[Rfam]
RNA sequence: UAAAAGGGUCGGUUGGCUAUGUAUGCCACGCCCACUCCUUCUGUUGGUGGGUGCUGUAUGGCUAUCAAGACAUAUGGCCGACAUAAUUUGUGGAACUCCUAUAGGGUUGGCUCGCUCGGCCGACCCUCCA
Numbered sequence: 001u002a003a004a005a006g007g008g009u010c011g012g013u014u015g016g017c018u019a020u021g022u023a024u025g026c027c028a029c030g031c032c033c034a035c036u037c038c039u040u041c042u043g044u045u046g047g048u049g050g051g052u053g054c055u056g057u058a059u060g061g062c063u064a065u066c067a068a069g070a071c072a073u074a075u076g077g078c079c080g081a082c083a084u085a086a087u088u089u090g091u092g093g094a095a096c097u098c099c100u101a102u103a104g105g106g107u108u109g110g111c112u113c114g115c116u117c118g119g120c121c122g123a124c125c126c127u128c129c130a
Stems, first nucleotide, its partner, number of pairs: 008082005014028004029053008054077007103127008112119002